Small nucleolar RNA SNORA70: a 135-nucleotide sequence from Cervus hanglu. Rfam's curators write: snoRNA U70 seems to be exclusive to mammals and is a member of the H/ACA class of snoRNA which contain H (ANANNA) and ACA box motifs. H/ACA box snoRNAs are involved in the conversion of uridines to pseudouridines (5-ribosyluracil) a constituent of structural RNAs (transfer, ribosomal, small nuclear, and small nucleolar). The literature on the family includes a 2000 paper in IUBMB Life by Charette and Gray, "Pseudouridine in RNA: what, where, how, and why". Gene Ontology terms of the family: nucleolus and RNA processing.
RNA sequence: CUGAACUGAACUGAAGCCCACUGUGCGCCUUUCCCGGGGGAGUCUAGAGUGCAAUAGCUGCAAACAGCAGCCUCCUCCAUAGUUUUUGCAGCCUGCUGCCUGUAUGGGUUGCUCUAACAGACCCUGCAGACAGCC
Numbered sequence: 001c002u003g004a005a006c007u008g009a010a011c012u013g014a015a016g017c018c019c020a021c022u023g024u025g026c027g028c029c030u031u032u033c034c035c036g037g038g039g040g041a042g043u044c045u046a047g048a049g050u051g052c053a054a055u056a057g058c059u060g061c062a063a064a065c066a067g068c069a070g071c072c073u074c075c076u077c078c079a080u081a082g083u084u085u086u087u088g089c090a091g092c093c094u095g096c097u098g099c100c101u102g103u104a105u106g107g108g109u110u111g112c113u114c115u116a117a118c119a120g121a122c123c124c125u126g127c128a129g130a131c132a133g134c135c
Stems, first nucleotide, its partner, number of pairs: 002053002005050001021047003026042001028040002080121001089111006
By type it is an H/ACA-box small nucleolar RNA.